Description:
A member of the RNA family "7SK RNA" from Tupaia belangeri, 303 nucleotides long. Lineage of the source: Eukaryota > Chordata > Teleostomi > Euteleostomi > Tupaia belangeri. The match comes from Rfam's covariance-model search (276 bits). Its Rfam clan is "7SK clan". On this family, see Blencowe, Curr Biol 2002: "Transcription: surprising role for an elusive small nuclear RNA".

[Rfam]
RNA sequence: GGAUGUGAGGGCGAUCUGGCUGCGACAUCUGUCACCCCAUUGAUCGCCAGGGUUGAUUCAGCUGAUCUGGCUGGCUAGCCGGGUGUCCCCUUCCUCCCUCACCGCUCCAUGUGCGUCCCUCCCGAAGCUGCGCGCUCGGUUGAAGAGGACGACCAUCCCUGAUAGAGGAGGACCGUUCUUCGGUCAAGGGUAUACGAGUAGCUGCGCUCCCCUGCUAGAACCUCCAAACAAGCUCUCAAGGUCCAGAAAGAAGUCAACUCAAUAUAUAUAUUUUAUAAUCCAGAGGGUGUGUGCACUCAUCAG
Numbered sequence: 001g002g003a004u005g006u007g008a009g010g011g012c013g014a015u016c017u018g019g020c021u022g023c024g025a026c027a028u029c030u031g032u033c034a035c036c037c038c039a040u041u042g043a044u045c046g047c048c049a050g051g052g053u054u055g056a057u058u059c060a061g062c063u064g065a066u067c068u069g070g071c072u073g074g075c076u077a078g079c080c081g082g083g084u085g086u087c088c089c090c091u092u093c094c095u096c097c098c099u100c101a102c103c104g105c106u107c108c109a110u111g112u113g114c115g116u117c118c119c120u121c122c123c124g125a126a127g128c129u130g131c132g133c134g135c136u137c138g139g140u141u142g143a144a145g146a147g148g149a150c151g152a153c154c155a156u157c158c159c160u161g162a163u164a165g166a167g168g169a170g171g172a173c174c175g176u177u178c179u180u181c182g183g184u185c186a187a188g189g190g191u192a193u194a195c196g197a198g199u200a201g202c203u204g205c206g207c208u209c210c211c212c213u214g215c216u217a218g219a220a221c222c223u224c225c226a227a228a229c230a231a232g233c234u235c236u237c238a239a240g241g242u243c244c245a246g247a248a249a250g251a252a253g254u255c256a257a258c259u260c261a262a263u264a265u266a267u268a269u270a271u272u273u274u275a276u277a278a279u280c281c282a283g284a285g286g287g288u289g290u291g292u293g294c295a296c297u298c299a300u301c302a303g
Stems, first nucleotide, its partner, number of pairs: 001108003005102007013093002018090002024087008033078001035074002037070003042067004046062002116171002118168004122139004127135002140162003147158003201259001203257001207253002215250001223248001225246001286297004